Annotation
Rfam assigns this 84-nucleotide sequence from Homo sapiens to the family "mir-548 microRNA precursor family". Its family is annotated with miRNA-mediated post-transcriptional gene silencing and RISC complex in the Gene Ontology. The family's consensus secondary structure was predicted with WAR. It scores 94 bits against the family's covariance model.
RNA sequence: UAUUAAGUUGGUGCAAAAGUAAUUGCGGUUUUUACCAUUAAAAGUAAUGGUAAAAACCGCAAUUACUUUUGUACCCACCUAAUA
Numbered sequence: 001u002a003u004u005a006a007g008u009u010g011g012u013g014c015a016a017a018a019g020u021a022a023u024u025g026c027g028g029u030u031u032u033u034a035c036c037a038u039u040a041a042a043a044g045u046a047a048u049g050g051u052a053a054a055a056a057c058c059g060c061a062a063u064u065a066c067u068u069u070u071g072u073a074c075c076c077a078c079c080u081a082a083u084a
Stems, first nucleotide, its partner, number of pairs: 001084005007078002010075031